[Rfam]
RNA sequence: UCGGGUCCAUGCAGACACCCGGUCGACCAGGACACCCCGUCCCAAGCGCUGC
Numbered sequence: 001u002c003g004g005g006u007c008c009a010u011g012c013a014g015a016c017a018c019c020c021g022g023u024c025g026a027c028c029a030g031g032a033c034a035c036c037c038c039g040u041c042c043c044a045a046g047c048g049c050u051g052c
Base pairs, nucleotide, nucleotide: 001022002021003020004019005018006017011052012051013050014049030042031041032040033039
The family of this 52-nucleotide RNA from Betaproteobacteria bacterium SCGC AG-212-J23 is "chrB-b RNA".